Background: Rfam assigns this 600-nucleotide part of an RNA from Streptomyces seoulensis to the family "Bacterial large subunit ribosomal RNA". The organism belongs to Streptomyces, within Bacteria.
RNA sequence: GGGCGCACGGUGGAUGCCUUGGCACCAGGAACCGAUGAAGGACGUGGGAGGCCACGAUAGUCCCCGGGGAGCCGUCAACCAGGCUUUGAUCCGGGGGUUUCCGAAUGGGGAAACCCGGCAGUCGUCAUGGGCUGUCACCCGCUGCUGAACACAUAGGCAGUGUGGAGGGAACGAGGGGAAGUGAAACAUCUCAGUACCCUCAGGAAGAGAAAACAACCGUGAUUCCGGGAGUAGUGGCGAGCGAAACCGGAUGAGGCCAAACCGUAUACGUGUGAGACCCGGCAGGGGUUGCGUGUGCGGGGUUGUGGGAUCUCUCUUCUGUCGUCUGCCGGCGACAGGACGAGUCAGAAACCGUUGAUGUAGGCGAAGGACAUGCGAAAGGUCCGGCGUAGAGGGUAAGACCCCCGUAGUCGAAACAUCAGCGGCUCGUUUGAGAGACACCCAAGUAGCACGGGGCCCGAGAAAUCCCGUGUGAAUCUGGCGGGACCACCCGCUAAGCCUAAAUAUUCCCUGGUGACCGAUAGCGGAUAGUACCGUGAGGGAAUGGUGAAAAGUACCGCGGGAGCGGAGUGAAAUAGUACCUGAAACCGUGUGCCUACA
Numbered sequence: 001g002g003g004c005g006c007a008c009g010g011u012g013g014a015u016g017c018c019u020u021g022g023c024a025c026c027a028g029g030a031a032c033c034g035a036u037g038a039a040g041g042a043c044g045u046g047g048g049a050g051g052c053c054a055c056g057a058u059a060g061u062c063c064c065c066g067g068g069g070a071g072c073c074g075u076c077a078a079c080c081a082g083g084c085u086u087u088g089a090u091c092c093g094g095g096g097g098u099u100u101c102c103g104a105a106u107g108g109g110g111a112a113a114c115c116c117g118g119c120a121g122u123c124g125u126c127a128u129g130g131g132c133u134g135u136c137a138c139c140c141g142c143u144g145c146u147g148a149a150c151a152c153a154u155a156g157g158c159a160g161u162g163u164g165g166a167g168g169g170a171a172c173g174a175g176g177g178g179a180a181g182u183g184a185a186a187c188a189u190c191u192c193a194g195u196a197c198c199c200u201c202a203g204g205a206a207g208a209g210a211a212a213a214c215a216a217c218c219g220u221g222a223u224u225c226c227g228g229g230a231g232u233a234g235u236g237g238c239g240a241g242c243g244a245a246a247c248c249g250g251a252u253g254a255g256g257c258c259a260a261a262c263c264g265u266a267u268a269c270g271u272g273u274g275a276g277a278c279c280c281g282g283c284a285g286g287g288g289u290u291g292c293g294u295g296u297g298c299g300g301g302g303u304u305g306u307g308g309g310a311u312c313u314c315u316c317u318u319c320u321g322u323c324g325u326c327u328g329c330c331g332g333c334g335a336c337a338g339g340a341c342g343a344g345u346c347a348g349a350a351a352c353c354g355u356u357g358a359u360g361u362a363g364g365c366g367a368a369g370g371a372c373a374u375g376c377g378a379a380a381g382g383u384c385c386g387g388c389g390u391a392g393a394g395g396g397u398a399a400g401a402c403c404c405c406c407g408u409a410g411u412c413g414a415a416a417c418a419u420c421a422g423c424g425g426c427u428c429g430u431u432u433g434a435g436a437g438a439c440a441c442c443c444a445a446g447u448a449g450c451a452c453g454g455g456g457c458c459c460g461a462g463a464a465a466u467c468c469c470g471u472g473u474g475a476a477u478c479u480g481g482c483g484g485g486a487c488c489a490c491c492c493g494c495u496a497a498g499c500c501u502a503a504a505u506a507u508u509c510c511c512u513g514g515u516g517a518c519c520g521a522u523a524g525c526g527g528a529u530a531g532u533a534c535c536g537u538g539a540g541g542g543a544a545u546g547g548u549g550a551a552a553a554g555u556a557c558c559g560c561g562g563g564a565g566c567g568g569a570g571u572g573a574a575a576u577a578g579u580a581c582c583u584g585a586a587a588c589c590g591u592g593u594g595c596c597u598a599c600a
Base pairs, nucleotide, nucleotide: 001597002596003595004594005593006592007591008590009589010588016582017547018546021519022518023516024515025514026513027512028511029510030508031507032168033167040102041101042100043056044055045054062096063095064094065093066092067091068090071084072083073082107116108115109114117136118135119134120133121132122131123130138165139164140162141161142160143159144158145157146156172203173201174200175199176198177197183190184189213220214219223504224251225250226249227248228247234242235241254501255500256499257498262300263299264298265297266296267295268294269293270292271291272290307443308442309441312437313436314435315434316433350427352425353424354423355422356421357420358419359418360417361416363412364411365410369385370384371383372382388392394406395405396404449473450472451471452470453469454468455467456466480495481494482493483492484491534541535540557568558567559566560565